[Rfam]
RNA sequence: UCGGACCCCUCGCGCGGCGUCAUCCUGUGAACCUCCCCAGGGCCGGAAGGCAGCAAGGAUAAGCAGGCUCUGGCGGGUGUGCGAGGGGUUCUCUUC
Numbered sequence: 001u002c003g004g005a006c007c008c009c010u011c012g013c014g015c016g017g018c019g020u021c022a023u024c025c026u027g028u029g030a031a032c033c034u035c036c037c038c039a040g041g042g043c044c045g046g047a048a049g050g051c052a053g054c055a056a057g058g059a060u061a062a063g064c065a066g067g068c069u070c071u072g073g074c075g076g077g078u079g080u081g082c083g084a085g086g087g088g089u090u091c092u093c094u095u096c
Stems, first nucleotide, its partner, number of pairs: 003091005009085006015077001018075005024067005034059003042051003